[Rfam]
RNA sequence: GUGCAUCUCUUUGACAGACCUAAUGCAGUUAUAUCUGCUUUUAAGGUUUCCACUACGAUGCAAGGCAAAUUUUCCUUGCAUUUUUUCUCCACGUUAUUGUGGCAGUCUAAAUUGAAUAGGGGCAUACAAGA
Numbered sequence: 001g002u003g004c005a006u007c008u009c010u011u012u013g014a015c016a017g018a019c020c021u022a023a024u025g026c027a028g029u030u031a032u033a034u035c036u037g038c039u040u041u042u043a044a045g046g047u048u049u050c051c052a053c054u055a056c057g058a059u060g061c062a063a064g065g066c067a068a069a070u071u072u073u074c075c076u077u078g079c080a081u082u083u084u085u086u087c088u089c090c091a092c093g094u095u096a097u098u099g100u101g102g103c104a105g106u107c108u109a110a111a112u113u114g115a116a117u118a119g120g121g122g123c124a125u126a127c128a129a130g131a
Base pairs, nucleotide, nucleotide: 002062003061004060005059006058007057012052013051016049017048018047019046020045023040025038026037027036028035073121074120075119076118079114082111083110084109087105088104093103094102095101
Annotation
Shown here is a 131-nucleotide RNA sequence from Phascolarctos cinereus, a member of the family "Small nucleolar RNA SNORA31". Rfam links the family to the GO terms nucleolus and RNA processing. About the family: ACA31 (SNORA31) belongs to the H/ACA class of snoRNAs which are thought to guide the sites of modification of uridines to pseudouridines. ACA31 is predicted to guide the pseudouridylation of U3713 in 28S rRNA and U218 in 18S rRNA. This family includes the mouse homologue snoMBI-161. The match comes from Rfam's covariance-model search (46 bits). The family's consensus secondary structure was predicted with RNAalifold. The family's RNA type in Rfam is H/ACA-box small nucleolar RNA.